Record summary:
The family of this 147-nucleotide RNA sequence from Anaerocolumna xylanovorans is "RT-14 RNA".
RNA sequence: CUUACCCUUUGAGCCAGACGGGAAAGUCUAAGGACUUUUCACAGCGCAAGAAAGGGAAAGGGAUCUAUUUCCGUUCCGGUGACAUUUCCGGAAGAAUUAACGUCGCUAUCAAUGCAGUUAGUAAAAUUUGAAGGGUGUAACGGAUAG
Numbered sequence: 001c002u003u004a005c006c007c008u009u010u011g012a013g014c015c016a017g018a019c020g021g022g023a024a025a026g027u028c029u030a031a032g033g034a035c036u037u038u039u040c041a042c043a044g045c046g047c048a049a050g051a052a053a054g055g056g057a058a059a060g061g062g063a064u065c066u067a068u069u070u071c072c073g074u075u076c077c078g079g080u081g082a083c084a085u086u087u088c089c090g091g092a093a094g095a096a097u098u099a100a101c102g103u104c105g106c107u108a109u110c111a112a113u114g115c116a117g118u119u120a121g122u123a124a125a126a127u128u129u130g131a132a133g134g135g136u137g138u139a140a141c142g143g144a145u146a147g
Stems, first nucleotide, its partner, number of pairs: 006055004013047002021040008075092004106147005113139004118134001124129001
Dot-bracket structure: .....((((...((......((((((((....)))))))).....))....))))...................((((..........)))).............(((((..((((.(.....(....)....).))))...)))))
The base pairs follow the family's consensus structure, which is taken from published work. The match comes from Rfam's covariance-model search (56 bits).